[Rfam]
The record is a 77-nucleotide RNA sequence, which matches "chrB-a RNA" in Rfam.

RNA sequence: GCUAUGGGGAUUGCGAUCUCCCCACGAGGCGACAUGCCCAAGUAUCGCGUCCUGUUCUCACACAAGGGCGCAUCAUG
Numbered sequence: 001g002c003u004a005u006g007g008g009g010a011u012u013g014c015g016a017u018c019u020c021c022c023c024a025c026g027a028g029g030c031g032a033c034a035u036g037c038c039c040a041a042g043u044a045u046c047g048c049g050u051c052c053u054g055u056u057c058u059c060a061c062a063c064a065a066g067g068g069c070g071c072a073u074c075a076u077g
Stems, first nucleotide, its partner, number of pairs: 005024006047071006
Pairs were carried over by alignment from the consensus structure, which is taken from published work.